[Rfam]
RNA sequence: CACUGAGGACGACCUCACCCACCGCGGGAACCACGUCCGGGACGGCCCGG
Numbered sequence: 001c002a003c004u005g006a007g008g009a010c011g012a013c014c015u016c017a018c019c020c021a022c023c024g025c026g027g028g029a030a031c032c033a034c035g036u037c038c039g040g041g042a043c044g045g046c047c048c049g050g
Stems, first nucleotide, its partner, number of pairs: 004017005037050005